[Rfam]
RNA: L31-Actinobacteria ribosomal protein leader
Organism: Actinacidiphila yeochonensis
RNA sequence: CUGGCCCCGGUUCACGCAUCGGCAACCCCGCCUGUGCGACCCGGCGCC
Numbered sequence: 001c002u003g004g005c006c007c008c009g010g011u012u013c014a015c016g017c018a019u020c021g022g023c024a025a026c027c028c029c030g031c032c033u034g035u036g037c038g039a040c041c042c043g044g045c046g047c048c
Stems, first nucleotide, its partner, number of pairs: 003048003007044004015038005021032003
Dot-bracket structure: ..(((.((((....(((((.(((......))).)))))..)))).)))